Shown here is a 62-nucleotide sequence from Canis lupus, a member of the family "mir-24 microRNA precursor family". The organism belongs to Canis lupus, within Eukaryota. The base pairs follow the family's consensus structure, which was predicted with RNAalifold. The literature on the family includes a 2001 paper in Science by Lagos-Quintana et al., "Identification of novel genes coding for small expressed RNAs". It is one of the family's seed sequences.
[Rfam]
RNA sequence: CGUGCCUACUGAGCUGAAACACAGUUGAUUUGUGCAGACUGGCUCAGUUCAGCAGGAACAGG
Numbered sequence: 001c002g003u004g005c006c007u008a009c010u011g012a013g014c015u016g017a018a019a020c021a022c023a024g025u026u027g028a029u030u031u032g033u034g035c036a037g038a039c040u041g042g043c044u045c046a047g048u049u050c051a052g053c054a055g056g057a058a059c060a061g062g
Base pairs, nucleotide, nucleotide: 002059003058005056006055007054009052010051011050012049013048014047015046016045017044022041023040024039025038
Dot-bracket structure: .((.(((.(((((((((....((((............))))..))))))))).))).))...